[Rfam]
RNA sequence: GAAGCUUUACAAGCGCCAGAGCUUGUGAAUGAGCGGGGACGGCAGAGUAGCUUAGAUGAAAUCAUGGAGUCUGACGGAAGAAACGUACAGUCACCAUGGCUAAGCGAGAUGCCAACGGCAUUCCAAGCUGACGAGGUGGAGGUGUUCGAAAUGUUCGGCGGGGACCUCCCGGUAUGCUGCACCAGCCGUAAGCCGGAUCGGAAAAGGAACAGGCGACUGUUCCCACAACGUGCCGGCAGGUGCCACU
Numbered sequence: 001g002a003a004g005c006u007u008u009a010c011a012a013g014c015g016c017c018a019g020a021g022c023u024u025g026u027g028a029a030u031g032a033g034c035g036g037g038g039a040c041g042g043c044a045g046a047g048u049a050g051c052u053u054a055g056a057u058g059a060a061a062u063c064a065u066g067g068a069g070u071c072u073g074a075c076g077g078a079a080g081a082a083a084c085g086u087a088c089a090g091u092c093a094c095c096a097u098g099g100c101u102a103a104g105c106g107a108g109a110u111g112c113c114a115a116c117g118g119c120a121u122u123c124c125a126a127g128c129u130g131a132c133g134a135g136g137u138g139g140a141g142g143u144g145u146u147c148g149a150a151a152u153g154u155u156c157g158g159c160g161g162g163g164a165c166c167u168c169c170c171g172g173u174a175u176g177c178u179g180c181a182c183c184a185g186c187c188g189u190a191a192g193c194c195g196g197a198u199c200g201g202a203a204a205a206g207g208a209a210c211a212g213g214c215g216a217c218u219g220u221u222c223c224c225a226c227a228a229c230g231u232g233c234c235g236g237c238a239g240g241u242g243c244c245a246c247u
Stems, first nucleotide, its partner, number of pairs: 020129006027122001138169005146158004170188004175184002192237005206223007